[Rfam]
This 172-nucleotide sequence from Sporolactobacillus inulinus belongs to the Rfam family "glmS glucosamine-6-phosphate activated ribozyme aptamer". The source organism's lineage runs through Bacteria, Bacillati, Bacillota, Caryophanales and Sporolactobacillus inulinus.

RNA sequence: ACUGAAUAGAAAGCGCCUGGACUAUUCCAAAGGACGGAGAAAGACAGGAAUAGUUGACGAGGAAGAGGUUAAUCGAAUCAUUCGGCGGAUGCCUCUCGGUAUGCUUGCAACCGUAAGCACAGACCCAAAACAGGAAGGCAACUUUCUGGACAGAAGUUGUGCUGCAAGCGCA
Numbered sequence: 001a002c003u004g005a006a007u008a009g010a011a012a013g014c015g016c017c018u019g020g021a022c023u024a025u026u027c028c029a030a031a032g033g034a035c036g037g038a039g040a041a042a043g044a045c046a047g048g049a050a051u052a053g054u055u056g057a058c059g060a061g062g063a064a065g066a067g068g069u070u071a072a073u074c075g076a077a078u079c080a081u082u083c084g085g086c087g088g089a090u091g092c093c094u095c096u097c098g099g100u101a102u103g104c105u106u107g108c109a110a111c112c113g114u115a116a117g118c119a120c121a122g123a124c125c126c127a128a129a130a131c132a133g134g135a136a137g138g139c140a141a142c143u144u145u146c147u148g149g150a151c152a153g154a155a156g157u158u159g160u161g162c163u164g165c166a167a168g169c170g171c172a
Base pairs, nucleotide, nucleotide: 020055021054022053023052024051025050026049027048064096065095066094067093068092073085074084075083076082097113098112099111100110117162118161119160120159121158122157131148132147133146134145135144136143137142

A reference for the family is Winkler et al. (2004), "Control of gene expression by a natural metabolite-responsive ribozyme", Nature. It scores 102 bits against the family's covariance model.